Bacterial large subunit ribosomal RNA: a 248-nucleotide part of an RNA from Devosia sp. Root413D1. Taxonomically the source falls in Devosia (Bacteria, Pseudomonadati, Pseudomonadota, Hyphomicrobiales). On this family, see Yusupov et al., Science 2001: "Crystal structure of the ribosome at 5.5 A resolution". The family's consensus secondary structure is taken from published work.
[Rfam]
RNA sequence: GGAAUGUUGAGAAGAGCUGACCCUAGUACGAGAGGACCGGGUUGGACGAAUCUCUGGUGGACCUGUUGUCGCGCCAGCGGCAUUGCAGGGUAGCUAUAUUCGGACGGGAUAACUGCUGAAAGCAUCUAAGCAGGAAGCCUCCUUCAAAACGAGCAUUCCCUUGAGAGCCGUGGAAGACCACCACGUUGAUAGGCUGGAUGUGGAAGCGCCGUGAGGUGUGAAGCUGACCAGUACUAAUAGCUCGAUUG
Numbered sequence: 001g002g003a004a005u006g007u008u009g010a011g012a013a014g015a016g017c018u019g020a021c022c023c024u025a026g027u028a029c030g031a032g033a034g035g036a037c038c039g040g041g042u043u044g045g046a047c048g049a050a051u052c053u054c055u056g057g058u059g060g061a062c063c064u065g066u067u068g069u070c071g072c073g074c075c076a077g078c079g080g081c082a083u084u085g086c087a088g089g090g091u092a093g094c095u096a097u098a099u100u101c102g103g104a105c106g107g108g109a110u111a112a113c114u115g116c117u118g119a120a121a122g123c124a125u126c127u128a129a130g131c132a133g134g135a136a137g138c139c140u141c142c143u144u145c146a147a148a149a150c151g152a153g154c155a156u157u158c159c160c161u162u163g164a165g166a167g168c169c170g171u172g173g174a175a176g177a178c179c180a181c182c183a184c185g186u187u188g189a190u191a192g193g194c195u196g197g198a199u200g201u202g203g204a205a206g207c208g209c210c211g212u213g214a215g216g217u218g219u220g221a222a223g224c225u226g227a228c229c230a231g232u233a234c235u236a237a238u239a240g241c242u243c244g245a246u247u248g
Stems, first nucleotide, its partner, number of pairs: 001159008011145004017045007047102005055096003062089005067082006106140003113133005162245001165243004169185005190236003193232005200224001206219005